[Rfam]
Rfam assigns this 186-nucleotide sequence to the family "DUF2800 RNA". Rfam's curators put it in the seed alignment. Rfam classes the family as a cis-regulatory element.
RNA sequence: GUCCCAAGCAUGACAUAAAACUGCUUACUGAGAUUGUCUGCGCCGUCUGAUCAGCGGUGGCGCAACAGACAGUUUCAGUCGAAAUUUAAUAUGUACGGCUGCCUUAUGCGCUGGCGGCCGCAAUCCGAAUGGAGAAAUCCAUCUGGAUCGCGGUCAGGGUUUUUGCGCCCAUUUUGCAGCCGGUCG
Numbered sequence: 001g002u003c004c005c006a007a008g009c010a011u012g013a014c015a016u017a018a019a020a021c022u023g024c025u026u027a028c029u030g031a032g033a034u035u036g037u038c039u040g041c042g043c044c045g046u047c048u049g050a051u052c053a054g055c056g057g058u059g060g061c062g063c064a065a066c067a068g069a070c071a072g073u074u075u076c077a078g079u080c081g082a083a084a085u086u087u088a089a090u091a092u093g094u095a096c097g098g099c100u101g102c103c104u105u106a107u108g109c110g111c112u113g114g115c116g117g118c119c120g121c122a123a124u125c126c127g128a129a130u131g132g133a134g135a136a137a138u139c140c141a142u143c144u145g146g147a148u149c150g151c152g153g154u155c156a157g158g159g160u161u162u163u164u165g166c167g168c169c170c171a172u173u174u175u176g177c178a179g180c181c182g183g184u185c186g
Stems, first nucleotide, its partner, number of pairs: 028078005034072007041059005060111005096182007117154005129142005
The base pairs follow the family's consensus structure, which is taken from published work.